RNA sequence: AAUGAUAGUUUGGUCGCUUUUCAUUAUAGAUCGUCAUAUGGAACUUUUUAUAUAUGUUUAAAAAGACUCUAUAAUCUUUGAGGUGGAUUUACCUACUACAGAAAGUAUAGAAUU
Dot-bracket structure: (((((..((......))...)))))..((...((........))))..................((.((.(((.(.((...(((((......)))))...)).).))).)).))
Numbered sequence: 001a002a003u004g005a006u007a008g009u010u011u012g013g014u015c016g017c018u019u020u021u022c023a024u025u026a027u028a029g030a031u032c033g034u035c036a037u038a039u040g041g042a043a044c045u046u047u048u049u050a051u052a053u054a055u056g057u058u059u060a061a062a063a064a065g066a067c068u069c070u071a072u073a074a075u076c077u078u079u080g081a082g083g084u085g086g087a088u089u090u091a092c093c094u095a096c097u098a099c100a101g102a103a104a105g106u107a108u109a110g111a112a113u114u
Stems, first nucleotide, its partner, number of pairs: 001025005008017002028046002033044002065114002068111002071108003075104001077102002082097005